[Rfam]
RNA sequence: ACCGGAACUAGCCCGACGGGGCGAAAAGCGGGAAGCCUUACCGCCUGUUCCGGUCACUCUUCAAGG
Numbered sequence: 001a002c003c004g005g006a007a008c009u010a011g012c013c014c015g016a017c018g019g020g021g022c023g024a025a026a027a028g029c030g031g032g033a034a035g036c037c038u039u040a041c042c043g044c045c046u047g048u049u050c051c052g053g054u055c056a057c058u059c060u061u062c063a064a065g066g
Base pairs, nucleotide, nucleotide: 001054002053003052004051005050006049007048008047011022012021013020014019028044029043030042031041036066037065038064039063
RNA: int-alpA RNA
Organism: Klebsiella michiganensis